[Rfam]
RNA sequence: GGGAUUCGUUCGCAAACACCGAGGCGGGGACGGGGGAACCACAGUUCCACCGGGCGUGCGGCCCUCCUGCCGGCGUCCUCGGGGUUAAGUCGCUGAAUAUCGCCGAAUACGGCGCUGGUCGCGGCCGGGUGACUCCCAUCCGAACCCGACAGCUCACCCCGCAGGCAUGGGAGAGGUAUUCA
Numbered sequence: 001g002g003g004a005u006u007c008g009u010u011c012g013c014a015a016a017c018a019c020c021g022a023g024g025c026g027g028g029g030a031c032g033g034g035g036g037a038a039c040c041a042c043a044g045u046u047c048c049a050c051c052g053g054g055c056g057u058g059c060g061g062c063c064c065u066c067c068u069g070c071c072g073g074c075g076u077c078c079u080c081g082g083g084g085u086u087a088a089g090u091c092g093c094u095g096a097a098u099a100u101c102g103c104c105g106a107a108u109a110c111g112g113c114g115c116u117g118g119u120c121g122c123g124g125c126c127g128g129g130u131g132a133c134u135c136c137c138a139u140c141c142g143a144a145c146c147c148g149a150c151a152g153c154u155c156a157c158c159c160c161g162c163a164g165g166c167a168u169g170g171g172a173g174a175g176g177u178a179u180u181c182a
Stems, first nucleotide, its partner, number of pairs: 012166002019028002031161005040081001082147003090124004127141004

Rfam assigns this 182-nucleotide RNA from Arthrobacter sp. MN05-02 to the family "c-di-AMP riboswitch aptamer (ydaO/yuaA leader)". It scores 49 bits against the family's covariance model. The pairing is the family consensus, mapped onto this sequence. Gene Ontology terms of the family: regulation of gene expression and cyclic-di-AMP binding.